[Rfam]
The family of this 137-nucleotide RNA sequence from Gossypium gossypioides is "Small nucleolar RNA snoR111". Gene Ontology terms of the family: nucleolus and RNA processing. It scores 81 bits against the family's covariance model. The family's consensus secondary structure was predicted with WAR.
RNA sequence: AAAAGCGUGAGGAGGCAGUAUACGAGAUCUGUCUCUUCAUAACGAAGAACGUUGAGGUAUAUCAAAAUCAAUGGCCGAGAUAUCGUUUCAGUCGUCAUUUUUUCUCCAUUGACGGUCUGAUUGUUGCUCGUCCACAC
Numbered sequence: 001a002a003a004a005g006c007g008u009g010a011g012g013a014g015g016c017a018g019u020a021u022a023c024g025a026g027a028u029c030u031g032u033c034u035c036u037u038c039a040u041a042a043c044g045a046a047g048a049a050c051g052u053u054g055a056g057g058u059a060u061a062u063c064a065a066a067a068u069c070a071a072u073g074g075c076c077g078a079g080a081u082a083u084c085g086u087u088u089c090a091g092u093c094g095u096c097a098u099u100u101u102u103u104c105u106c107c108a109u110u111g112a113c114g115g116u117c118u119g120a121u122u123g124u125u126g127c128u129c130g131u132c133c134a135c136a137c
Base pairs, nucleotide, nucleotide: 006044007043008042009040011038012035013034014033015032016031017030073133074132076130077129078128079127082121083120084119085118091116092115093114094113095112096111097110099108